[Rfam]
The family of this 122-nucleotide RNA from Moschus moschiferus is "Small nucleolar RNA SNORA28".
The family is grouped with related families in Rfam's "SNORA28 clan".
The family's consensus secondary structure was predicted with RNAfold.
Rfam describes the family as follows. ACA28 is a member of the H/ACA class of snoRNA that guide the sites of modification of uridines to pseudouridines.
A reference for the family is Huttenhofer et al. (2001), "RNomics: an experimental approach that identifies 201 candidates for novel, small, non-messenger RNAs in mouse", EMBO J.
Nucleotides: 122
Stems, first nucleotide, its partner, number of pairs: 009044003012037003017032006060115007070108003075103001078100001083096004
Number, partner (000 for none) and nucleotide at each position: 001000a002000a003000g004000c005000a006000g007000c008000a009044c010043u011042c012037u013036g014035u015000a016000g017032c018031a019030g020029a021028u022027a023000a024000a025000a026000c027022u028021g029020u030019c031018u032017g033000a034000c035014a036013c037012a038000a039000u040000u041000u042011g043010a044009g045000c046000u047000u048000g049000c050000u051000a052000u053000a054000g055000a056000a057000a058000g059000a060115a061114a062113g063112u064111c065110u066109a067000a068000c069000c070108u071107a072106u073000u074000c075103c076000a077000g078100u079000a080000u081000u082000c083096u084095c085094u086093u087000c088000u089000c090000u091000g092000u093086g094085a095084g096083a097000c098000a099000a100078g101000g102000c103075g104000u105000u106072a107071u108070g109066u110065a111064g112063a113062c114061u115060u116000a117000a118000a119000c120000a121000g122000u